[Rfam]
RNA: Bacterial RNase P class A
RNA sequence: AAAGCAGGAGAGGUGAUCACAAUCAAGAUUUAUCGCGUUUCGCAAUAAAUGCUUGAUUGAGGAAAGUCCGGGCUCCCUGAUGGUCAAGCUUGCUGGGUAACUCCCAGUGCGGGUGACCGUGAGGAUAGUGCCACAGAAACACACCGCCGAUGGCUUAGUCCCACUCAGCACAGGCAAGGGUGCAAAGGUGCGGUAAGAGCGCACCAGCAGCAUCGAGAGGUGCUGGCUUGGUAAACCCCGGCUAGGAGCAAGGCAAAGGAGCAUUAAUGGCCAUCUAUGAUGCUCCUGAAAAAAGCCGCUUGAGGUUGUCGGUAACGGCAGUCCCAGAUAGAUGAUUACCCACUAACCUUUUUAGGUAGUGAACAGAACCCGGCUUAUGACCUGCUUUCACC
Numbered sequence: 001a002a003a004g005c006a007g008g009a010g011a012g013g014u015g016a017u018c019a020c021a022a023u024c025a026a027g028a029u030u031u032a033u034c035g036c037g038u039u040u041c042g043c044a045a046u047a048a049a050u051g052c053u054u055g056a057u058u059g060a061g062g063a064a065a066g067u068c069c070g071g072g073c074u075c076c077c078u079g080a081u082g083g084u085c086a087a088g089c090u091u092g093c094u095g096g097g098u099a100a101c102u103c104c105c106a107g108u109g110c111g112g113g114u115g116a117c118c119g120u121g122a123g124g125a126u127a128g129u130g131c132c133a134c135a136g137a138a139a140c141a142c143a144c145c146g147c148c149g150a151u152g153g154c155u156u157a158g159u160c161c162c163a164c165u166c167a168g169c170a171c172a173g174g175c176a177a178g179g180g181u182g183c184a185a186a187g188g189u190g191c192g193g194u195a196a197g198a199g200c201g202c203a204c205c206a207g208c209a210g211c212a213u214c215g216a217g218a219g220g221u222g223c224u225g226g227c228u229u230g231g232u233a234a235a236c237c238c239c240g241g242c243u244a245g246g247a248g249c250a251a252g253g254c255a256a257a258g259g260a261g262c263a264u265u266a267a268u269g270g271c272c273a274u275c276u277a278u279g280a281u282g283c284u285c286c287u288g289a290a291a292a293a294a295g296c297c298g299c300u301u302g303a304g305g306u307u308g309u310c311g312g313u314a315a316c317g318g319c320a321g322u323c324c325c326a327g328a329u330a331g332a333u334g335a336u337u338a339c340c341c342a343c344u345a346a347c348c349u350u351u352u353u354a355g356g357u358a359g360u361g362a363a364c365a366g367a368a369c370c371c372g373g374c375u376u377a378u379g380a381c382c383u384g385c386u387u388u389c390a391c392c
Stems, first nucleotide, its partner, number of pairs: 001388008011378001012340007020059008064376003068373005073248004082274001087243003091240002093107005108122001109120004123238002128236002130232003144179002146175003151170002187205006207227001208225007252297003257287006269275001304323008
Dot-bracket structure: ((((((((..((((((((.((((((((........................))))))))....[[[.[[[[[((((.....[....(((.(((((((.....)))))(((((....)))).)((...(((((...........(((((..((................))..)))..)).......((((((.......)))))).((((((((....))))))).)..)))..))))))))).))))...(((..((((((......(....])......)))))).......)))......((((((((....))))))))..........)))))))............................]]]]]]]].)..))))))))....